[Rfam]
RNA sequence: CAGUCUUGAUCGGGAGAGGGCAGCGCACGCUGCCGCCGAAGGGGCAUCACCCAAAAACUCUCAGGCAAAAGGACCGGUCAGGGGUC
Numbered sequence: 001c002a003g004u005c006u007u008g009a010u011c012g013g014g015a016g017a018g019g020g021c022a023g024c025g026c027a028c029g030c031u032g033c034c035g036c037c038g039a040a041g042g043g044g045c046a047u048c049a050c051c052c053a054a055a056a057a058c059u060c061u062c063a064g065g066c067a068a069a070a071g072g073a074c075c076g077g078u079c080a081g082g083g084g085u086c
Base pairs, nucleotide, nucleotide: 006081007080008079009078010077011076012075013074020033021032022031023030035066036065037064038062039061042060043059044058
RNA: Glycine riboswitch aptamer